Acido-Lenti-1 RNA: a 45-nucleotide RNA from Luteolibacter yonseiensis. The match comes from Rfam's covariance-model search (39 bits).
[Rfam]
RNA sequence: CCCAGGGCGCUGCCCUGGGCUCUCUCAUUGCGCACCUUUGGUGCU
Numbered sequence: 001c002c003c004a005g006g007g008c009g010c011u012g013c014c015c016u017g018g019g020c021u022c023u024c025u026c027a028u029u030g031c032g033c034a035c036c037u038u039u040g041g042u043g044c045u
Base pairs, nucleotide, nucleotide: 001019002018003017004016005015006014007013008012032044033043034042035041036040
The family's RNA type in Rfam is small RNA.